[Rfam]
Source information: Shown here is a 77-nucleotide sequence from Crocodylus porosus, a member of the family "Mammalian CPEB3 ribozyme". Taxonomically the source falls in Crocodylus (Eukaryota, Opisthokonta, Bilateria, Dipnotetrapodomorpha).

RNA sequence: GGUUGCAAGUUUGAGGCCAUAGCAGAAGCGUUCAGAGCAUGGCCCUGUCAGAUUCCAGCAAAUCUUUAAAUUCUGCU
Numbered sequence: 001g002g003u004u005g006c007a008a009g010u011u012u013g014a015g016g017c018c019a020u021a022g023c024a025g026a027a028g029c030g031u032u033c034a035g036a037g038c039a040u041g042g043c044c045c046u047g048u049c050a051g052a053u054u055c056c057a058g059c060a061a062a063u064c065u066u067u068a069a070a071u072u073c074u075g076c077u
Base pairs, nucleotide, nucleotide: 013045015044016043017042018041021077022076023075024074025073026072027071028040030038050065051064052063053062054061
It scores 44 bits against the family's covariance model.